The record is a 73-nucleotide RNA from Flavonifractor plautii, which matches "Fluoride riboswitch aptamer (crcB RNA motif)" in Rfam. A search with the family's covariance model found it, with a score of 46 bits. The source organism's lineage runs through Bacteria, Clostridia, Eubacteriales, Oscillospiraceae and Flavonifractor plautii.
RNA sequence: CCGGAACACGGGAAUGAGGUUCUCCCGGGGCGCUGGCCCGAACCGCCGCUUGGCUGAUGACUUCUGCAAGAGA
Numbered sequence: 001c002c003g004g005a006a007c008a009c010g011g012g013a014a015u016g017a018g019g020u021u022c023u024c025c026c027g028g029g030g031c032g033c034u035g036g037c038c039c040g041a042a043c044c045g046c047c048g049c050u051u052g053g054c055u056g057a058u059g060a061c062u063u064c065u066g067c068a069a070g071a072g073a
Stems, first nucleotide, its partner, number of pairs: 010026004016064006045054003